[Rfam]
RNA sequence: GACUGUAAUGGUCUAAUGGUGAAGAGUUUUAAUUUCUCGAUUGCUUCUCUCCCAAAUCCGUCAGAUCCCCCCGUGACGCCCAGACCGAACGCUGCGGUGGUCGCCCACUCGCUCAGGUAACUAGCGAUUGUGGAAUGCGCACCCUAAGCAUUGGAGAGCACCCUUGAGGGAGGUUUCACUCUGCAGAGAUCUCUCCCCCGUCGCGUGGCGGGCUGGAUUACGAUCGCGGGGGUUUGGGAUGAUGGUUCGAGAUGGAAACAUCAACACUUCUU
Numbered sequence: 001g002a003c004u005g006u007a008a009u010g011g012u013c014u015a016a017u018g019g020u021g022a023a024g025a026g027u028u029u030u031a032a033u034u035u036c037u038c039g040a041u042u043g044c045u046u047c048u049c050u051c052c053c054a055a056a057u058c059c060g061u062c063a064g065a066u067c068c069c070c071c072c073g074u075g076a077c078g079c080c081c082a083g084a085c086c087g088a089a090c091g092c093u094g095c096g097g098u099g100g101u102c103g104c105c106c107a108c109u110c111g112c113u114c115a116g117g118u119a120a121c122u123a124g125c126g127a128u129u130g131u132g133g134a135a136u137g138c139g140c141a142c143c144c145u146a147a148g149c150a151u152u153g154g155a156g157a158g159c160a161c162c163c164u165u166g167a168g169g170g171a172g173g174u175u176u177c178a179c180u181c182u183g184c185a186g187a188g189a190u191c192u193c194u195c196c197c198c199c200g201u202c203g204c205g206u207g208g209c210g211g212g213c214u215g216g217a218u219u220a221c222g223a224u225c226g227c228g229g230g231g232g233u234u235u236g237g238g239a240u241g242a243u244g245g246u247u248c249g250a251g252a253u254g255g256a257a258a259c260a261u262c263a264a265c266a267c268u269u270c271u272u
Stems, first nucleotide, its partner, number of pairs: 001013003018268004024262001027258004032253002036251003039247003048241001050239008068231001070230006077222002080216004085211003089206004094201004099142001102139003105133001106130002109127005115122002144148001153196006163188003170181003